[Rfam]
The family of this 80-nucleotide sequence from Vallitalea guaymasensis is "c-di-GMP-I-GGC riboswitch aptamer". Lineage of the source: Bacteria > Bacillati > Bacillota > Lachnospirales > Vallitalea. The family's consensus secondary structure is taken from published work. A reference for the family is Smith et al. (2012), "Structural and biochemical characterization of linear dinucleotide analogues bound to the c-di-GMP-I aptamer", Biochemistry.

RNA sequence: CACGAAUAUGGCAAACCUAUCGUGAGGUAGGGACGCAAAACUAUAGGGUCUUCAUAUAUGAAGAUAGCCAGAUGCCGAAG
Numbered sequence: 001c002a003c004g005a006a007u008a009u010g011g012c013a014a015a016c017c018u019a020u021c022g023u024g025a026g027g028u029a030g031g032g033a034c035g036c037a038a039a040a041c042u043a044u045a046g047g048g049u050c051u052u053c054a055u056a057u058a059u060g061a062a063g064a065u066a067g068c069c070a071g072a073u074g075c076c077g078a079a080g
Stems, first nucleotide, its partner, number of pairs: 001080001003077002011036002016031006034067001039073001041071002046069002048065003